[Rfam]
RNA sequence: CCAGAUAAUCAUUAUCUGAGCUUAAGUGGCAUGCUAAAUUAGUAAUAAGUUAGUGUGAAGCCCACCUAAAUCCAUCUUAAACAGAUUCAAUAAUUAGCUAAGAUGGUGAGCUAGAUAUCUAUGAAUAACAUUGUGAAUCCACGU
Number, nucleotide and partner (000 for none) at each position: 001c000002c018003a017004g016005a015006u014007a013008a000009u000010c000011a000012u000013u007014a006015u005016c004017u003018g002019a000020g000021c000022u000023u000024a000025a000026g065027u064028g063029g062030c057031a056032u055033g054034c053035u052036a051037a050038a000039u048040u047041a046042g000043u000044a000045a000046u041047a040048a039049g000050u037051u036052a035053g034054u033055g032056u031057g030058a000059a000060g000061c000062c029063c028064a027065c026066c000067u000068a000069a000070a000071u000072c000073c000074a000075u000076c000077u089078u000079a000080a000081a000082c000083a000084g000085a000086u000087u000088c000089a077090a000091u000092a000093a000094u000095u113096a112097g111098c110099u000100a000101a000102g000103a000104u000105g000106g000107u000108g000109a000110g098111c097112u096113a095114g000115a000116u000117a000118u137119c000120u135121a134122u133123g132124a000125a000126u000127a000128a000129c000130a000131u000132u123133g122134u121135g120136a000137a118138u000139c000140c000141a000142c000143g000144u000

The family of this 144-nucleotide sequence from Pseudozyma flocculosa is "Group II catalytic intron D1-D4-7". The literature on the family includes a 2001 paper in Trends Genet by Bonen and Vogel, "The ins and outs of group II introns". From the family's description: Group II introns are found in rRNA, tRNA and mRNA of organelles in fungi, plants and protists, and also in mRNA in bacteria.